Notes:
A member of the RNA family "U7 small nuclear RNA" from Vicugna pacos, 62 nucleotides long. NCBI's taxonomy places the organism under Eukaryota, Metazoa, Bilateria, Theria, Vicugna. Animal histone pre-mRNAs are spliced by a different mechanism than nuclear pre-mRNAs and self-splicing introns. This processing involves the U7 snRNP, which contains only one RNA species: U7. The 5' end of U7 RNA is thought to base-pair to a conserved spacer element downstream of the cleavage site in histone pre-mRNA. This family contains a number of annotated U7 pseudogenes. Pairs were carried over by alignment from the consensus structure, which was predicted with PFOLD.
[Rfam]
RNA sequence: CAGCGUUACAGCUCUUUUAGAAUUUGCCUAGUAGGUUUUCCGGUCUACACUGGAAAGCCCAU
Numbered sequence: 001c002a003g004c005g006u007u008a009c010a011g012c013u014c015u016u017u018u019a020g021a022a023u024u025u026g027c028c029u030a031g032u033a034g035g036u037u038u039u040c041c042g043g044u045c046u047a048c049a050c051u052g053g054a055a056a057g058c059c060c061a062u
Stems, first nucleotide, its partner, number of pairs: 034059011